[Rfam]
Small nucleolar RNA SNORD74: a 78-nucleotide sequence from Todus mexicanus. The organism belongs to Todus, within Eukaryota. Its Rfam clan is "SNORD74 clan". It is annotated as a C/D-box small nucleolar RNA. A reference for the family is Galardi et al. (2002), "Purified box C/D snoRNPs are able to reproduce site-specific 2'-O-methylation of target RNA in vitro", Mol Cell Biol.
RNA sequence: GUGCCUGCCGGUGAUGAGAACUGUGUUGGUAGGGACAUCUGAGAGCGUGAUGAACGCCAACACAUCUGAGCUGGGCAC
Numbered sequence: 001g002u003g004c005c006u007g008c009c010g011g012u013g014a015u016g017a018g019a020a021c022u023g024u025g026u027u028g029g030u031a032g033g034g035a036c037a038u039c040u041g042a043g044a045g046c047g048u049g050a051u052g053a054a055c056g057c058c059a060a061c062a063c064a065u066c067u068g069a070g071c072u073g074g075g076c077a078c
Stems, first nucleotide, its partner, number of pairs: 001078005